Description: The family of this 188-nucleotide sequence is "manA RNA". It is one of the family's seed sequences. It is annotated as a cis-regulatory element. The base pairs follow the family's consensus structure, which is taken from published work.
RNA sequence: AGUAACGACGGUUACGUCGGGAGUGACUGAAUAAUCUUUCUGGCAAACGCUGGAUAAGGUGAUGAGACACAGGUGGUGCUGCUUCGAGAGAAGAAUCGACUUACCAGUCGGGUCUCAGGCAAGAACGUAUUUUACUCUGUAGUAAUGCCCGUUCUUUGUUGGUAUACAGGAAUCCAACCUCCCUUUUC
Numbered sequence: 001a002g003u004a005a006c007g008a009c010g011g012u013u014a015c016g017u018c019g020g021g022a023g024u025g026a027c028u029g030a031a032u033a034a035u036c037u038u039u040c041u042g043g044c045a046a047a048c049g050c051u052g053g054a055u056a057a058g059g060u061g062a063u064g065a066g067a068c069a070c071a072g073g074u075g076g077u078g079c080u081g082c083u084u085c086g087a088g089a090g091a092a093g094a095a096u097c098g099a100c101u102u103a104c105c106a107g108u109c110g111g112g113u114c115u116c117a118g119g120c121a122a123g124a125a126c127g128u129a130u131u132u133u134a135c136u137c138u139g140u141a142g143u144a145a146u147g148c149c150c151g152u153u154c155u156u157u158g159u160u161g162g163u164a165u166a167c168a169g170g171a172a173u174c175c176a177a178c179c180u181c182c183c184u185u186u187u188c
Stems, first nucleotide, its partner, number of pairs: 002015005019183005026060002039054006063117006070081003074106004082093004096111005121156007132145004137169004158178005